Annotation
The family of this 69-nucleotide RNA from Barnesiella viscericola is "Bacteroidetes FopS (family of paralogous sRNAs)". The sequence is in the family's curated seed alignment.
[Rfam]
RNA sequence: GUGUUUUUCAUGGUAUUAGAUUUAAGGUUAAUAAGGAUUGGUUGUCGUGAGACAAUCAAUUUUUUUUUG
Number, nucleotide and partner (000 for none) at each position: 001g000002u000003g000004u000005u000006u000007u000008u000009c000010a000011u000012g000013g000014u000015a000016u000017u000018a000019g000020a000021u000022u000023u000024a000025a000026g000027g000028u000029u000030a000031a000032u000033a000034a000035g000036g000037a000038u000039u000040g057041g056042u055043u054044g053045u052046c051047g000048u000049g000050a000051g046052a045053c044054a043055a042056u041057c040058a000059a000060u000061u000062u000063u000064u000065u000066u000067u000068u000069g000
Source information: NCBI's taxonomy places the organism under Bacteria, Bacteroidia, Barnesiellaceae, Barnesiella, Barnesiella viscericola. Pairs were carried over by alignment from the consensus structure, which is taken from published work. Rfam 15.1 lists 822 matches to the family in 178 species. Rfam describes the family as follows. The RNA-binding protein RbpB and BTncRNA_FopS sRNA are involved in the post-transcription regulation of polysaccharide utilisation loci (PUL). FopS sRNAs function as post-transcriptional repressors by binding to the vicinity of the start codon of the first mRNA of target PUL polycistrons, typically corresponding to the cognate SusC homolog, impeding translation of the respective glycan transporter. Its family is annotated with sRNA-mediated gene silencing in the Gene Ontology.